Notes
A member of the RNA family "c-di-GMP-I riboswitch aptamer" from Robertmurraya siralis, 87 nucleotides long. It scores 71 bits against the family's covariance model. The base pairs follow the family's consensus structure, which is taken from published work. The literature on the family includes a 2007 paper in Nucleic Acids Res by Weinberg et al., "Identification of 22 candidate structured RNAs in bacteria using the CMfinder comparative genomics pipeline".
RNA sequence: AGGUUAAUUUGGCAAAGCCAUUGAAAAAUGGGGACGCAAAGCUAUAGGGGCUAAAGUAUUCACAUACCAUGCCAGCCAGUUGCAUGA
Numbered sequence: 001a002g003g004u005u006a007a008u009u010u011g012g013c014a015a016a017g018c019c020a021u022u023g024a025a026a027a028a029u030g031g032g033g034a035c036g037c038a039a040a041g042c043u044a045u046a047g048g049g050g051c052u053a054a055a056g057u058a059u060u061c062a063c064a065u066a067c068c069a070u071g072c073c074a075g076c077c078a079g080u081u082g083c084a085u086g087a
Stems, first nucleotide, its partner, number of pairs: 012037002018031005040081004047077002049073003056067004